[Rfam]
RNA sequence: UCUUGCUGAAAAUUAAUCUUACUUUUAAUUGUGAUCUAAGUAAGAGGUUCUGUGCCGACAGCAGAGGGAGCAUUAAACUCAUUGCCCACGGUAAAGUGUGGGGAGUGAUACCCAUGUUCCUAUAAUC
Numbered sequence: 001u002c003u004u005g006c007u008g009a010a011a012a013u014u015a016a017u018c019u020u021a022c023u024u025u026u027a028a029u030u031g032u033g034a035u036c037u038a039a040g041u042a043a044g045a046g047g048u049u050c051u052g053u054g055c056c057g058a059c060a061g062c063a064g065a066g067g068g069a070g071c072a073u074u075a076a077a078c079u080c081a082u083u084g085c086c087c088a089c090g091g092u093a094a095a096g097u098g099u100g101g102g103g104a105g106u107g108a109u110a111c112c113c114a115u116g117u118u119c120c121u122a123u124a125a126u127c
Base pairs, nucleotide, nucleotide: 005053006052008050009049010048013043014042015041023034024033067120069118070117071116072115073114079108080107081106082105083104087100088099089098
Annotation: This 127-nucleotide RNA sequence from Bucco capensis belongs to the Rfam family "Small nucleolar RNA ACA64". Rfam 15.1 lists 9,537 matches to the family in 620 species. The organism belongs to Bucco, within Eukaryota. By type it is an H/ACA-box small nucleolar RNA. The literature on the family includes a 2006 paper in RNA by Schattner et al., "A computational screen for mammalian pseudouridylation guide H/ACA RNAs".